[Rfam]
RNA sequence: GGACAGGCUCUUUUUAUAGGAAGGGUGGUUCGCCACCUGAGGCAGAUUAUUCAAGAGGAAUAGAAAAUGGCUUUGAACGCUGAACAGAAAGCAGCAAUCGUAAAUGAGUACCAGGUAGGCGAA
Numbered sequence: 001g002g003a004c005a006g007g008c009u010c011u012u013u014u015u016a017u018a019g020g021a022a023g024g025g026u027g028g029u030u031c032g033c034c035a036c037c038u039g040a041g042g043c044a045g046a047u048u049a050u051u052c053a054a055g056a057g058g059a060a061u062a063g064a065a066a067a068u069g070g071c072u073u074u075g076a077a078c079g080c081u082g083a084a085c086a087g088a089a090a091g092c093a094g095c096a097a098u099c100g101u102a103a104a105u106g107a108g109u110a111c112c113a114g115g116u117a118g119g120c121g122a123a
Stems, first nucleotide, its partner, number of pairs: 007026006050077003055074004
RNA: Ribosomal S15 leader
Organism: Halioglobus sp. HI00S01